[Rfam]
RNA sequence: AAUGCACACAAACCCAAGGCCCUGUCUAACCAGUGACAUGCUCUUAAUGCGUUGUGCAAAAAUUAAUCUUUGAAUCUUGUCGCCUUUCUCUGAUGCUGUUGUGCCGUUGAAAGUGAAUCCAAGGUUUAACACGU
Numbered sequence: 001a002a003u004g005c006a007c008a009c010a011a012a013c014c015c016a017a018g019g020c021c022c023u024g025u026c027u028a029a030c031c032a033g034u035g036a037c038a039u040g041c042u043c044u045u046a047a048u049g050c051g052u053u054g055u056g057c058a059a060a061a062a063u064u065a066a067u068c069u070u071u072g073a074a075u076c077u078u079g080u081c082g083c084c085u086u087u088c089u090c091u092g093a094u095g096c097u098g099u100u101g102u103g104c105c106g107u108u109g110a111a112a113g114u115g116a117a118u119c120c121a122a123g124g125u126u127u128a129a130c131a132c133g134u
Base pairs, nucleotide, nucleotide: 003058004057005056006055007054008053017044018043019042021040023038024037025036026035072127073126074125075124076123077122078121084113085112086111087110088109091106092105

A member of the RNA family "Small nucleolar RNA SNORA68" from Gadus morhua, 134 nucleotides long. On this family, see Ganot et al., Genes Dev 1997: "The family of box ACA small nucleolar RNAs is defined by an evolutionarily conserved secondary structure and ubiquitous sequence elements essential for RNA accumulation". NCBI's taxonomy places the organism under Eukaryota, Gnathostomata, Neoteleostei, Acanthomorphata, Gadus. Rfam describes the family as follows. U68 is a member of the H/ACA class of small nucleolar RNAs (snoRNAs) which act as guides in the the modification of uridines to pseudouridines. Rfam 15.1 lists 1,079 matches to the family in 643 species. It scores 47 bits against the family's covariance model.